The record is a 281-nucleotide sequence from Baudoinia panamericana, which matches "A. fumigatus sRNA Afu_309" in Rfam. The literature on the family includes a 2008 paper in Nucleic Acids Res by Jochl et al., "Small ncRNA transcriptome analysis from Aspergillus fumigatus suggests a novel mechanism for regulation of protein synthesis". Lineage of the source: Eukaryota > Dikarya > Pezizomycotina > dothideomyceta > Baudoinia panamericana. It scores 138 bits against the family's covariance model. Rfam classes the family as a small RNA.

RNA sequence: UUCCUUCUACAUCAACAAGAUCUGUGUCCAGCGGUCCCGACGUGCGGUGCUUGCGCUGUCACUGCCGGUUGCAUCCCUGCGACAUUUCGACGAAUCUAUGCAAACCUUCCUCUCAAUGGAGUAAGUGCGGUCGACAGAUCUCAGAGCGAAAUGCGCGCGGUGCUUCGCUUUGAGUUCCUCGCGAGCUCGGCGACACUGCGUUGCUGGGGCGCUAUAUUCCGAAUCGUUCCCGAGGCCGUCGGCCGCUGAGGGUUGGGACAAACCAUAGCUUGCCUACAUAC
Numbered sequence: 001u002u003c004c005u006u007c008u009a010c011a012u013c014a015a016c017a018a019g020a021u022c023u024g025u026g027u028c029c030a031g032c033g034g035u036c037c038c039g040a041c042g043u044g045c046g047g048u049g050c051u052u053g054c055g056c057u058g059u060c061a062c063u064g065c066c067g068g069u070u071g072c073a074u075c076c077c078u079g080c081g082a083c084a085u086u087u088c089g090a091c092g093a094a095u096c097u098a099u100g101c102a103a104a105c106c107u108u109c110c111u112c113u114c115a116a117u118g119g120a121g122u123a124a125g126u127g128c129g130g131u132c133g134a135c136a137g138a139u140c141u142c143a144g145a146g147c148g149a150a151a152u153g154c155g156c157g158c159g160g161u162g163c164u165u166c167g168c169u170u171u172g173a174g175u176u177c178c179u180c181g182c183g184a185g186c187u188c189g190g191c192g193a194c195a196c197u198g199c200g201u202u203g204c205u206g207g208g209g210c211g212c213u214a215u216a217u218u219c220c221g222a223a224u225c226g227u228u229c230c231c232g233a234g235g236c237c238g239u240c241g242g243c244c245g246c247u248g249a250g251g252g253u254u255g256g257g258a259c260a261a262a263c264c265a266u267a268g269c270u271u272g273c274c275u276a277c278a279u280a281c
Stems, first nucleotide, its partner, number of pairs: 018141008026083003029079003033075003036071001037068003041064001042062002044059006091133003095129001098122001099120001101118001152203002160199001166192004172188006208274003211269005224258002226254001229252003234244004
Dot-bracket structure: .................((((((((((((((.(((((((.(((((((((....)))))).)).).)))..).))).))).))).......(((.(..((.(................).).)......).)))))))))))..........((......(.....((((..((((((.....))))))))))......)..))....((((((((........(((..(((..((((...)))).....))).)..))......)))))..))).......